[Rfam]
RNA: Molybdenum/Tungsten riboswitch aptamer (Moco RNA motif)
RNA sequence: UAAUUGCCAUAACUCCGAGCUCUUUGGGCUAAGUCGUCACAAGUAAACGUGACAAUAUGCGUCUAGAGCCAGUGACAUUUCGUCACCAGGGCAUAAUUGGAAAUGAUUUUGCCUCCCGUAUUUGGAAAGGUGUUCCGUGGCGCAACAA
Numbered sequence: 001u002a003a004u005u006g007c008c009a010u011a012a013c014u015c016c017g018a019g020c021u022c023u024u025u026g027g028g029c030u031a032a033g034u035c036g037u038c039a040c041a042a043g044u045a046a047a048c049g050u051g052a053c054a055a056u057a058u059g060c061g062u063c064u065a066g067a068g069c070c071a072g073u074g075a076c077a078u079u080u081c082g083u084c085a086c087c088a089g090g091g092c093a094u095a096a097u098u099g100g101a102a103a104u105g106a107u108u109u110u111g112c113c114u115c116c117c118g119u120a121u122u123u124g125g126a127a128a129g130g131u132g133u134u135c136c137g138u139g140g141c142g143c144a145a146c147a148a
Stems, first nucleotide, its partner, number of pairs: 011134003015130002019069005026062001028060002033056002036053005072086005089114005095108005115125002
Dot-bracket structure: ..........(((.((..(((((..(.((...((.(((((........))))).))..)).)..)))))..(((((.....)))))..(((((.(((((....))))).)))))((.......))...)).)))..............